[Rfam]
RNA: RT-5 RNA
RNA sequence: UUGCGCCUGCGGCGGACCCGGCACGGGCAAACAGACGACUUCGCAGGCAGUCUGCCCGUGUACGGUCUGGUACUUCCCGAAAUUAUUCGGGCUUUAACGCUUUCU
Numbered sequence: 001u002u003g004c005g006c007c008u009g010c011g012g013c014g015g016a017c018c019c020g021g022c023a024c025g026g027g028c029a030a031a032c033a034g035a036c037g038a039c040u041u042c043g044c045a046g047g048c049a050g051u052c053u054g055c056c057c058g059u060g061u062a063c064g065g066u067c068u069g070g071u072a073c074u075u076c077c078c079g080a081a082a083u084u085a086u087u088c089g090g091g092c093u094u095u096a097a098c099g100c101u102u103u104c105u
Stems, first nucleotide, its partner, number of pairs: 005048007013069003017065002021061008037052004076091006